[Rfam]
Record summary: This 92-nucleotide RNA sequence from Homo sapiens belongs to the Rfam family "mir-3934 microRNA precursor family".

RNA sequence: CUUCCUGUCCCCAGUUUUCAGGUGUGGAAACUGAGGCAGGAGGCAGUGAAGUAACUUGCUCAGGUUGCACAGCUGGGAAGUGGAGCAGGGAU
Numbered sequence: 001c002u003u004c005c006u007g008u009c010c011c012c013a014g015u016u017u018u019c020a021g022g023u024g025u026g027g028a029a030a031c032u033g034a035g036g037c038a039g040g041a042g043g044c045a046g047u048g049a050a051g052u053a054a055c056u057u058g059c060u061c062a063g064g065u066u067g068c069a070c071a072g073c074u075g076g077g078a079a080g081u082g083g084a085g086c087a088g089g090g091a092u
Base pairs, nucleotide, nucleotide: 002091003090004089005088006087007086008085011083012082013081015079016078017077018076019075020074021073023071024070025069026068028066029065031063032062033061034060035059037058038057039056040055043052044051